[Rfam]
RNA sequence: AUCGCUUCUCGGCCUUUUGGCUAAGAUCAAAGUUUAGUUUCUGUUCUUAUCGAAUUAACCUUCGAUAGAGAUUCGAAUGAGUCUCGCUAAGGUUAUUCGAUUUUUGGGGCCGGAUGGGGUCGCGGGCUUGCUCGCACCCCGUCGCGGGUCGGCCCAGCGUUGCACUGCUGCUGGGAUCGGCCCACCUCCG
Numbered sequence: 001a002u003c004g005c006u007u008c009u010c011g012g013c014c015u016u017u018u019g020g021c022u023a024a025g026a027u028c029a030a031a032g033u034u035u036a037g038u039u040u041c042u043g044u045u046c047u048u049a050u051c052g053a054a055u056u057a058a059c060c061u062u063c064g065a066u067a068g069a070g071a072u073u074c075g076a077a078u079g080a081g082u083c084u085c086g087c088u089a090a091g092g093u094u095a096u097u098c099g100a101u102u103u104u105u106g107g108g109g110c111c112g113g114a115u116g117g118g119g120u121c122g123c124g125g126g127c128u129u130g131c132u133c134g135c136a137c138c139c140c141g142u143c144g145c146g147g148g149u150c151g152g153c154c155c156a157g158c159g160u161u162g163c164a165c166u167g168c169u170g171c172u173g174g175g176a177u178c179g180g181c182c183c184a185c186c187u188c189c190g
Base pairs, nucleotide, nucleotide: 007026008025009024011022012021013020014019048067049066050065051064052063053062069084070083071082072081073080074079113143114142115141116140117139118138119137120136123134124133125132126131146183147182148181149180150179151178153175154174155173156172157171158170
RNA: U2 spliceosomal RNA